[Rfam]
RNA: DUF805b RNA
Organism: Mucilaginibacter oryzae
RNA sequence: ACGGCGGACCCGAAAAGCCGGAACAGAGUAGGAU
Numbered sequence: 001a002c003g004g005c006g007g008a009c010c011c012g013a014a015a016a017g018c019c020g021g022a023a024c025a026g027a028g029u030a031g032g033a034u
Stems, first nucleotide, its partner, number of pairs: 002020004010032002